[Rfam]
RNA sequence: UGCGAUGAGUCGAGAGAUCACGCAACUUCGGUUGUUCGCGCAAUCGAUUUAAGUGAUGUUUUGAGCGGGACACAUUUUCUGCACGGAUUUGCAGGUGUUUGGUUCUAGAGGAUUGUGGAAUCC
Number, nucleotide and partner (000 for none) at each position: 001u000002g000003c000004g000005a000006u000007g000008a000009g000010u000011c000012g000013a000014g000015a000016g000017a057018u056019c055020a054021c053022g035023c034024a033025a032026c031027u000028u000029c000030g000031g026032u025033u024034g023035u022036u047037c046038g045039c000040g000041c000042a000043a000044u000045c038046g037047a036048u000049u000050u000051a000052a000053g021054u020055g019056a018057u017058g000059u000060u000061u000062u000063g000064a000065g000066c000067g000068g000069g099070a098071c097072a096073c095074a000075u000076u000077u000078u000079c094080u093081g092082c091083a090084c000085g000086g000087a000088u000089u000090u083091g082092c081093a080094g079095g073096u072097g071098u070099u069100u000101g000102g000103u000104u000105c000106u000107a000108g000109a000110g123111g122112a121113u120114u119115g000116u000117g000118g000119a114120a113121u112122c111123c110
Rfam assigns this 123-nucleotide RNA from Lentilactobacillus curieae to the family "Enterococcus sRNA 68 (Lacto-3 RNA)".
The source organism's lineage runs through Bacteria, Bacillati, Bacilli, Lactobacillaceae and Lentilactobacillus.
The family's RNA type in Rfam is small RNA.
The match comes from Rfam's covariance-model search (82 bits).
The base pairs follow the family's consensus structure, which is taken from published work.